[Rfam]
RNA sequence: GUGGGUUGAAGCUCAUUGUAGAGGUCACAUGCAGAGUGCUCGUCACUCCACCAAUCACCUCGGGGAAGGUCUGAGACAAGAGCCAAUAGUUACCCUCGCAGGGUAUCACCUGAUUUGGGUGAGCGAGUGAACAGAAAGCUAUGGGCCAAAGUGAGCACUUGUCGCAGGAGAAGCUAAGUGACGCAGAUUCCAGUGUCAUGAAGCGGAUGUGGCGCUCACGGGCUUGGAAUCGCUCGCGGCUAGCAAAUGAGUGCGAUGUAUGAGGUGGGGCACAGCUCCAGAACCCAAUUCAGACUACUCUCCACCCAC
Numbered sequence: 001g002u003g004g005g006u007u008g009a010a011g012c013u014c015a016u017u018g019u020a021g022a023g024g025u026c027a028c029a030u031g032c033a034g035a036g037u038g039c040u041c042g043u044c045a046c047u048c049c050a051c052c053a054a055u056c057a058c059c060u061c062g063g064g065g066a067a068g069g070u071c072u073g074a075g076a077c078a079a080g081a082g083c084c085a086a087u088a089g090u091u092a093c094c095c096u097c098g099c100a101g102g103g104u105a106u107c108a109c110c111u112g113a114u115u116u117g118g119g120u121g122a123g124c125g126a127g128u129g130a131a132c133a134g135a136a137a138g139c140u141a142u143g144g145g146c147c148a149a150a151g152u153g154a155g156c157a158c159u160u161g162u163c164g165c166a167g168g169a170g171a172a173g174c175u176a177a178g179u180g181a182c183g184c185a186g187a188u189u190c191c192a193g194u195g196u197c198a199u200g201a202a203g204c205g206g207a208u209g210u211g212g213c214g215c216u217c218a219c220g221g222g223c224u225u226g227g228a229a230u231c232g233c234u235c236g237c238g239g240c241u242a243g244c245a246a247a248u249g250a251g252u253g254c255g256a257u258g259u260a261u262g263a264g265g266u267g268g269g270g271c272a273c274a275g276c277u278c279c280a281g282a283a284c285c286c287a288a289u290u291c292a293g294a295c296u297a298c299u300c301u302c303c304a305c306c307c308a309c
Stems, first nucleotide, its partner, number of pairs: 001309004008302002012264005021061004034048005071293005081241004091105005106122006123237007145223003266280006
RNA: Nuclear RNase P
Organism: Cyclopterus lumpus